[Rfam]
RNA: ilvH RNA
Organism: Curvibacter sp. PAE-UM
RNA sequence: GACGAAUCUAUUGUCCGCCGAGCCCGGUCGUUACCGCGACCGGGGGAGGGCGGCGAAAAGAGGAAUCC
Numbered sequence: 001g002a003c004g005a006a007u008c009u010a011u012u013g014u015c016c017g018c019c020g021a022g023c024c025c026g027g028u029c030g031u032u033a034c035c036g037c038g039a040c041c042g043g044g045g046g047a048g049g050g051c052g053g054c055g056a057a058a059a060g061a062g063g064a065a066u067c068c
Base pairs, nucleotide, nucleotide: 011056012055013054015053016052017051018050019049023044024043025042026041027040028039029038030037031036
Dot-bracket structure: ..........(((.(((((...(((((((((....)))))))))....))))))))............